Annotation
This 133-nucleotide RNA from Clostridium aminobutyricum belongs to the Rfam family "c-di-AMP riboswitch aptamer (ydaO/yuaA leader)". The organism belongs to Clostridium, within Bacteria. This family represents a conserved RNA structure found upstream of the ydaO and yuaA genes in Bacillus subtilis and related genes in other bacteria. It scores 107 bits against the family's covariance model.
RNA sequence: ACAUAUGUGUUGCUGAGUCAAGUAAUUGAACGGGAGAACCAAAUUUAUGGGGUGAAUCACAGAUUAAAUGUGUAGGGUAUCUUUUCUGCCCGAAUCCGUCAGCUAAUCUCGUAAGCAUAAGAAAAGAGUAUAU
Numbered sequence: 001a002c003a004u005a006u007g008u009g010u011u012g013c014u015g016a017g018u019c020a021a022g023u024a025a026u027u028g029a030a031c032g033g034g035a036g037a038a039c040c041a042a043a044u045u046u047a048u049g050g051g052g053u054g055a056a057u058c059a060c061a062g063a064u065u066a067a068a069u070g071u072g073u074a075g076g077g078u079a080u081c082u083u084u085u086c087u088g089c090c091c092g093a094a095u096c097c098g099u100c101a102g103c104u105a106a107u108c109u110c111g112u113a114a115g116c117a118u119a120a121g122a123a124a125a126g127a128g129u130a131u132a133u
Base pairs, nucleotide, nucleotide: 011117012116013115014114018029019028020027030112031111032110033109034108035107040049041048050097051096052095058072059071060070061069075091076090077089078088